Potassium channel RNA editing signal: a 114-nucleotide RNA sequence from Chanos chanos. This family represents a group of sequences related to the human potassium channel Kv1.1 hairpin element which directs the efficient modification of an adenosine to inosine by an adenosine deaminase acting on RNA (ADAR). The family's consensus secondary structure is taken from published work. The organism belongs to Chanos, within Eukaryota. The family's RNA type in Rfam is cis-regulatory element.
RNA sequence: GUUGGUUAUGGAGACAUGGUGCCCACCACCAUUGGUGGUAAAAUUGUGGGAUCUCUCUGUGCCAUUGCUGGUGUACUCACCAUCGCCUUGCCCGUCCCUGUCAUUGUCUCCAAC
Numbered sequence: 001g002u003u004g005g006u007u008a009u010g011g012a013g014a015c016a017u018g019g020u021g022c023c024c025a026c027c028a029c030c031a032u033u034g035g036u037g038g039u040a041a042a043a044u045u046g047u048g049g050g051a052u053c054u055c056u057c058u059g060u061g062c063c064a065u066u067g068c069u070g071g072u073g074u075a076c077u078c079a080c081c082a083u084c085g086c087c088u089u090g091c092c093c094g095u096c097c098c099u100g101u102c103a104u105u106g107u108c109u110c111c112a113a114c
Stems, first nucleotide, its partner, number of pairs: 001114002004111002008107004013102004018097002021095002037077004049063002